This 129-nucleotide sequence belongs to the Rfam family "RAGATH-36 RNA".
RNA sequence: UGGCACGGUACGAUUCCGUGGAGUGGUUUUCCACUUAACGCUUAGUCCUUGUAAUAGUGAAGGUAAGUGAGGGGGCACCCAAAAUUCUGAAAGCUUUACAAGGCGUUGGGGACUACGAAAGUGUCCAAG
Numbered sequence: 001u002g003g004c005a006c007g008g009u010a011c012g013a014u015u016c017c018g019u020g021g022a023g024u025g026g027u028u029u030u031c032c033a034c035u036u037a038a039c040g041c042u043u044a045g046u047c048c049u050u051g052u053a054a055u056a057g058u059g060a061a062g063g064u065a066a067g068u069g070a071g072g073g074g075g076c077a078c079c080c081a082a083a084a085u086u087c088u089g090a091a092a093g094c095u096u097u098a099c100a101a102g103g104c105g106u107u108g109g110g111g112a113c114u115a116c117g118a119a120a121g122u123g124u125c126c127a128a129g
Stems, first nucleotide, its partner, number of pairs: 004020005021036006047103007056095003061088003071080003110126004115122002